[Rfam]
RNA sequence: AGCGCUUUGGCAGUGUGGUUAGCUGGUUGUGUCGUUAAUUUCAUUCAAUUCACAGCCACUAUCUUCACUGCCGCCGCGAU
Numbered sequence: 001a002g003c004g005c006u007u008u009g010g011c012a013g014u015g016u017g018g019u020u021a022g023c024u025g026g027u028u029g030u031g032u033c034g035u036u037a038a039u040u041u042c043a044u045u046c047a048a049u050u051c052a053c054a055g056c057c058a059c060u061a062u063c064u065u066c067a068c069u070g071c072c073g074c075c076g077c078g079a080u
Stems, first nucleotide, its partner, number of pairs: 003078003009072002012069004017064002020061003024058008

mir-34 microRNA precursor family: an 80-nucleotide RNA from Ceratitis capitata. On this family, see Lim et al., Science 2003: "Vertebrate microRNA genes". Gene Ontology terms of the family: RISC complex and miRNA-mediated post-transcriptional gene silencing. The family's consensus secondary structure was predicted with RNAalifold. It scores 65 bits against the family's covariance model. Rfam 15.1 lists 2,256 matches to the family in 820 species.